[Rfam]
A member of the RNA family "Small nucleolar RNA SNORA5" from Silurus meridionalis, 136 nucleotides long. Lineage of the source: Eukaryota > Craniata > Clupeocephala > Ostariophysi > Silurus. It scores 61 bits against the family's covariance model. Gene Ontology terms of the family: nucleolus and RNA processing. ACA5 is a member of the H/ACA class of snoRNA that guide the sites of modification of uridines to pseudouridines. By type it is an H/ACA-box small nucleolar RNA.

RNA sequence: CGCAGUCUAGUCAAAUUCAGUGUGUCCUCUUCAGUGGACUGUACUGGCCAAAUGGCUGCUAUAGUGAUGUCAUAGUCCAUGGGCCCCGGGUCUAACUUAAAUAGAUACUGGGGAUAAUUAAUGGCUAUGUACAACC
Numbered sequence: 001c002g003c004a005g006u007c008u009a010g011u012c013a014a015a016u017u018c019a020g021u022g023u024g025u026c027c028u029c030u031u032c033a034g035u036g037g038a039c040u041g042u043a044c045u046g047g048c049c050a051a052a053u054g055g056c057u058g059c060u061a062u063a064g065u066g067a068u069g070u071c072a073u074a075g076u077c078c079a080u081g082g083g084c085c086c087c088g089g090g091u092c093u094a095a096c097u098u099a100a101a102u103a104g105a106u107a108c109u110g111g112g113g114a115u116a117a118u119u120a121a122u123g124g125c126u127a128u129g130u131a132c133a134a135c136c
Stems, first nucleotide, its partner, number of pairs: 002059004018046006024039004072128006084113003088109002